A member of the RNA family "mir-6579 microRNA precursor family" from Gallus gallus, 68 nucleotides long. Taxonomically the source falls in Gallus (Eukaryota, Teleostomi, Sauria, Galliformes). Pairs were carried over by alignment from the consensus structure, which was predicted with RNAalifold. Rfam 15.1 lists 4 matches to the family in 4 species.
RNA sequence: AACGCCGUGCAACGCCGUGCAACGCACCUGCGCGGAACCAGAGGCAUUUCACAGCGUAACACGGCGUG
Numbered sequence: 001a002a003c004g005c006c007g008u009g010c011a012a013c014g015c016c017g018u019g020c021a022a023c024g025c026a027c028c029u030g031c032g033c034g035g036a037a038c039c040a041g042a043g044g045c046a047u048u049u050c051a052c053a054g055c056g057u058a059a060c061a062c063g064g065c066g067u068g
Base pairs, nucleotide, nucleotide: 002067003066004065005064006063007062008061009060012057013056014055015054017052018051019050021048022047024045025044028041029040030039